[Rfam]
Notes: Shown here is a 119-nucleotide RNA from Paraburkholderia tagetis, a member of the family "Burkholderia sRNA Bp1_Cand684_SIPHT". Rfam 15.1 lists 176 matches to the family in 44 species. A search with the family's covariance model found it, with a score of 47 bits. The literature on the family includes a 2012 paper in BMC Genomics by Khoo et al., "Computational discovery and RT-PCR validation of novel Burkholderia conserved and Burkholderia pseudomallei unique sRNAs".
RNA sequence: AGAAAAGUAGGUGCCGCCCCGCACAGGGGCAACGCUAAUAGACCGACAUGAAAACAAGGAAACGCGACAACCCGUUCCCCACGAACAGACCUAAGCGGCCCUGCCUACGCGGCCCGCUC
Numbered sequence: 001a002g003a004a005a006a007g008u009a010g011g012u013g014c015c016g017c018c019c020c021g022c023a024c025a026g027g028g029g030c031a032a033c034g035c036u037a038a039u040a041g042a043c044c045g046a047c048a049u050g051a052a053a054a055c056a057a058g059g060a061a062a063c064g065c066g067a068c069a070a071c072c073c074g075u076u077c078c079c080c081a082c083g084a085a086c087a088g089a090c091c092u093a094a095g096c097g098g099c100c101c102u103g104c105c106u107a108c109g110c111g112g113c114c115c116g117c118u119c
Stems, first nucleotide, its partner, number of pairs: 011086002014083001016030005058077002102111003

Rfam classes the family as a small RNA.